[Rfam]
RNA sequence: GUCAAUAAGGAAAGCAGGAAAGAAUGGGUGAAGCGAUAGGGCUACACACAAGUGACAUGGCGGUCAAGCUGAGGAAGGUCAGAUAGAGUGUGUGAGGAUUAAACAUGACCCAUCAAAGCAGUUGAAGAAAGCAAGAACAGUAGGACAAGAAAGCAUAGAGUUCGGAACUAUUUGAAGAAAACUGAACAGGUUGAGCCAAUCAACACUUUACUCCUCUACCAAGAAGCUGUUAAGCGGAAGAAUCAACCGAGCGAGAGGACACAGUACCUUGUUGAC
Numbered sequence: 001g002u003c004a005a006u007a008a009g010g011a012a013a014g015c016a017g018g019a020a021a022g023a024a025u026g027g028g029u030g031a032a033g034c035g036a037u038a039g040g041g042c043u044a045c046a047c048a049c050a051a052g053u054g055a056c057a058u059g060g061c062g063g064u065c066a067a068g069c070u071g072a073g074g075a076a077g078g079u080c081a082g083a084u085a086g087a088g089u090g091u092g093u094g095a096g097g098a099u100u101a102a103a104c105a106u107g108a109c110c111c112a113u114c115a116a117a118g119c120a121g122u123u124g125a126a127g128a129a130a131g132c133a134a135g136a137a138c139a140g141u142a143g144g145a146c147a148a149g150a151a152a153g154c155a156u157a158g159a160g161u162u163c164g165g166a167a168c169u170a171u172u173u174g175a176a177g178a179a180a181a182c183u184g185a186a187c188a189g190g191u192u193g194a195g196c197c198a199a200u201c202a203a204c205a206c207u208u209u210a211c212u213c214c215u216c217u218a219c220c221a222a223g224a225a226g227c228u229g230u231u232a233a234g235c236g237g238a239a240g241a242a243u244c245a246a247c248c249g250a251g252c253g254a255g256a257g258g259a260c261a262c263a264g265u266a267c268c269u270u271g272u273u274g275a276c
Base pairs, nucleotide, nucleotide: 001276002275003274004273005272006271007270008269009268010267024113025112026111027110028109029108044093045092046091047090048089049088053066054065055064056063069082070081071080072079121247122246123245124244125243131235132234136231137230138229139228140227141226142215143214144213145212150209151208152207153206160187161186162185163184164183165182190204191203192202193201194200
Notes
Rfam assigns this 276-nucleotide RNA sequence to the family "RAGATH-8 RNA". It is annotated as a small RNA. The literature on the family includes a 2015 paper in Nat Chem Biol by Weinberg et al., "New classes of self-cleaving ribozymes revealed by comparative genomics analysis".